Small nucleolar RNA snoR136: a 146-nucleotide RNA sequence from Triticum turgidum. By type it is an H/ACA-box small nucleolar RNA. The family's consensus secondary structure was predicted with mfold. The source organism's lineage runs through Eukaryota, Streptophyta, Streptophytina, Triticodae and Triticum turgidum. Its family is annotated with nucleolus and RNA processing in the Gene Ontology.
RNA sequence: UCUGCUUCUCUUAACAGUAUUCGUGCCUGUGAAUUAAUUUCUAUGGUUCCUGGGUAAUGAGGAGAUGGGAAGCAGAAAUUAAUGUUCCUCUCGCUAUCCAGUGCAGAACUUCUUGUGUUGCAAUUGGACGUCGAGGAACUACACUU
Numbered sequence: 001u002c003u004g005c006u007u008c009u010c011u012u013a014a015c016a017g018u019a020u021u022c023g024u025g026c027c028u029g030u031g032a033a034u035u036a037a038u039u040u041c042u043a044u045g046g047u048u049c050c051u052g053g054g055u056a057a058u059g060a061g062g063a064g065a066u067g068g069g070a071a072g073c074a075g076a077a078a079u080u081a082a083u084g085u086u087c088c089u090c091u092c093g094c095u096a097u098c099c100a101g102u103g104c105a106g107a108a109c110u111u112c113u114u115g116u117g118u119u120g121c122a123a124u125u126g127g128a129c130g131u132c133g134a135g136g137a138a139c140u141a142c143a144c145u146u
Base pairs, nucleotide, nucleotide: 001077003074004073005072008069009068010067012062015059016058024056025055026054027053028052029051033048035046084139085138086137087136088135089134090133092130093129097128098127099126100125101124106118108116